[Rfam]
RNA sequence: UUGUUUGCCUGGUAGGGGAGACACCAUGGUCAUGGAAGGUGGGUUUUCUAGGGUGAAGCCAAUCCUUUGCACUCCAGAUGUGCUGAUCCCUGUAAUUUCCCAGAUGCUGAUCCCUGUAAUUUUCCAGGAACCUCAGCUGCAUAAUUUUUGGUAGGAGGGGACUGUCUGCCCCUU
Numbered sequence: 001u002u003g004u005u006u007g008c009c010u011g012g013u014a015g016g017g018g019a020g021a022c023a024c025c026a027u028g029g030u031c032a033u034g035g036a037a038g039g040u041g042g043g044u045u046u047u048c049u050a051g052g053g054u055g056a057a058g059c060c061a062a063u064c065c066u067u068u069g070c071a072c073u074c075c076a077g078a079u080g081u082g083c084u085g086a087u088c089c090c091u092g093u094a095a096u097u098u099c100c101c102a103g104a105u106g107c108u109g110a111u112c113c114c115u116g117u118a119a120u121u122u123u124c125c126a127g128g129a130a131c132c133u134c135a136g137c138u139g140c141a142u143a144a145u146u147u148u149u150g151g152u153a154g155g156a157g158g159g160g161a162c163u164g165u166c167u168g169c170c171c172c173u174u
Base pairs, nucleotide, nucleotide: 012140013139014138015137016049017048018047019046020045021044024042025041026040027039050091051090052089053088055087057084058083059082062079063078064077093135095133097130098129100128156173157172158171159170160169162168
RNA: U1 spliceosomal RNA
Organism: Nipponia nippon